[Rfam]
RNA sequence: AAUCUUUUAAAGUGUUCUACUUAUAUAAUGUCAUAAUAUGGAUGACGAGUUUCUACCUAAAACCGUAAAUUUUAGACUAUAAGUAAAAAAGCUGUUUAU
Numbered sequence: 001a002a003u004c005u006u007u008u009a010a011a012g013u014g015u016u017c018u019a020c021u022u023a024u025a026u027a028a029u030g031u032c033a034u035a036a037u038a039u040g041g042a043u044g045a046c047g048a049g050u051u052u053c054u055a056c057c058u059a060a061a062a063c064c065g066u067a068a069a070u071u072u073u074a075g076a077c078u079a080u081a082a083g084u085a086a087a088a089a090a091g092c093u094g095u096u097u098a099u
Base pairs, nucleotide, nucleotide: 018085019084020083021082022081023080024079025078029047030046031045032044033043034042057075058074059073060072061071062070